This 106-nucleotide RNA sequence from Bacillus sp. DNRA2 belongs to the Rfam family "SAM riboswitch aptamer (S box leader)". The base pairs follow the family's consensus structure, which is taken from published work. NCBI's taxonomy places the organism under Bacteria, Bacillati, Bacillota, Bacilli, Bacillus.
[Rfam]
RNA sequence: CUCUUAUCUAGAGAGGUCGAGGGACUGGCCCUAUGAAGCCUCAGCAACCAUAACACUUUAUGAUGGUGCUAAUUCCAGCAAAACGAUGGCUUUUGAUCGAUAAGAG
Numbered sequence: 001c002u003c004u005u006a007u008c009u010a011g012a013g014a015g016g017u018c019g020a021g022g023g024a025c026u027g028g029c030c031c032u033a034u035g036a037a038g039c040c041u042c043a044g045c046a047a048c049c050a051u052a053a054c055a056c057u058u059u060a061u062g063a064u065g066g067u068g069c070u071a072a073u074u075c076c077a078g079c080a081a082a083a084c085g086a087u088g089g090c091u092u093u094u095g096a097u098c099g100a101u102a103a104g105a106g
Stems, first nucleotide, its partner, number of pairs: 001106008013042005021031003025078004043070004048066004053061001079095005